Small nucleolar RNA Z161/Z228: an 88-nucleotide RNA sequence from Hordeum vulgare. It scores 66 bits against the family's covariance model. Pairs were carried over by alignment from the consensus structure, which was predicted with PFOLD. NCBI's taxonomy places the organism under Eukaryota, Poales, Triticodae, Triticeae, Hordeum vulgare. By type it is a C/D-box small nucleolar RNA.
RNA sequence: UGCCAUAUGAUGAGAAACCUUAUCCAACUCACGACGGUCGUCUGAGACACUUAGUGUGUAAUGGUGCAUACAUAUUUCACUGAUGGCA
Numbered sequence: 001u002g003c004c005a006u007a008u009g010a011u012g013a014g015a016a017a018c019c020u021u022a023u024c025c026a027a028c029u030c031a032c033g034a035c036g037g038u039c040g041u042c043u044g045a046g047a048c049a050c051u052u053a054g055u056g057u058g059u060a061a062u063g064g065u066g067c068a069u070a071c072a073u074a075u076u077u078c079a080c081u082g083a084u085g086g087c088a
Stems, first nucleotide, its partner, number of pairs: 001088003048056003